RNA sequence: AAUGAAUGAUGUGUGUGUAUCGGAAUUGUGCUUUGAAAUGUACUUUAAUCUGAAAGAGAGUUCUCACUGAUUUUUGGUGGUGGGCAGUUGAGUUUCAUGUAAUCUAUUGUUUUUAUCAACAAUCAUUUUCUCCACAUUU
Dot-bracket structure: ...(((...(....((((((.................))))))................))))............((.(((((...((((..........................))))..))))...).))......

small nucleolar RNA snoR135: a 139-nucleotide RNA from Papaver nudicaule. The source organism's lineage runs through Eukaryota, Embryophyta, Spermatophyta, Papaveroideae and Papaver. Rfam classes the family as an H/ACA-box small nucleolar RNA. Gene Ontology terms of the family: nucleolus and RNA processing.